[Rfam]
RNA sequence: CGUGUGGUGUCUGGCGUGAGGCUGGAUGGCGACACGGCCUAAUAUAUUAGAGGU
Numbered sequence: 001c002g003u004g005u006g007g008u009g010u011c012u013g014g015c016g017u018g019a020g021g022c023u024g025g026a027u028g029g030c031g032a033c034a035c036g037g038c039c040u041a042a043u044a045u046a047u048u049a050g051a052g053g054u
Base pairs, nucleotide, nucleotide: 001036002035003034004033005032007030008029011025012024013023014022015021
The record is a 54-nucleotide sequence, which matches "L31-Gammaproteobacteria ribosomal protein leader" in Rfam. The family's RNA type in Rfam is cis-regulatory leader. Its Rfam clan is "Ribosomal Protein L31 Leader clan".